Rfam assigns this 43-nucleotide RNA from Pimelobacter simplex to the family "L31-Actinobacteria ribosomal protein leader".

Nucleotides: 043
Base pairs, nucleotide, nucleotide: 003043004042007040008039009038010037015034016033017032018031019029020028021027
Number, partner (000 for none) and nucleotide at each position: 001000u002000u003043g004042g005000c006000u007040c008039c009038g010037g011000u012000u013000c014000a015034c016033g017032u018031c019029c020028g021027c022000a023000a024000c025000c026000c027021g028020u029019g030000u031018g032017a033016c034015g035000a036000c037010c038009c039008g040007g041000a042004c043003c

The source organism's lineage runs through Bacteria, Bacillati, Actinomycetota, Propionibacteriales and Pimelobacter. The family's RNA type in Rfam is cis-regulatory leader. Clan: Ribosomal Protein L31 Leader clan.